[Rfam]
Rfam assigns this 85-nucleotide sequence from Chanos chanos to the family "mir-135 microRNA precursor family".
RNA sequence: GUGCUGCUGUGUCUUAUGGCUUUUUAUUCCUAUGUGAUUGUAAAUUAGGCUCAUGUAGGGAUAGAAGCCACUAGACACAUAGUAA
Numbered sequence: 001g002u003g004c005u006g007c008u009g010u011g012u013c014u015u016a017u018g019g020c021u022u023u024u025u026a027u028u029c030c031u032a033u034g035u036g037a038u039u040g041u042a043a044a045u046u047a048g049g050c051u052c053a054u055g056u057a058g059g060g061a062u063a064g065a066a067g068c069c070a071c072u073a074g075a076c077a078c079a080u081a082g083u084a085a
Stems, first nucleotide, its partner, number of pairs: 002084005009078006017070007026062012
Rfam 15.1 lists 2,125 matches to the family in 647 species.
The match comes from Rfam's covariance-model search (74 bits).
On this family, see Lagos-Quintana et al., Curr Biol 2002: "Identification of tissue-specific microRNAs from mouse".
Taxonomically the source falls in Chanos (Eukaryota, Chordata, Teleostomi, Euteleostomi).